[Rfam]
RNA sequence: AUAAAGGCUCUUUUAAGAGCCACACAAAUAUUUCAAAAAGAGUCUA
Numbered sequence: 001a002u003a004a005a006g007g008c009u010c011u012u013u014u015a016a017g018a019g020c021c022a023c024a025c026a027a028a029u030a031u032u033u034c035a036a037a038a039a040g041a042g043u044c045u046a
Base pairs, nucleotide, nucleotide: 006021007020008019009018010017011016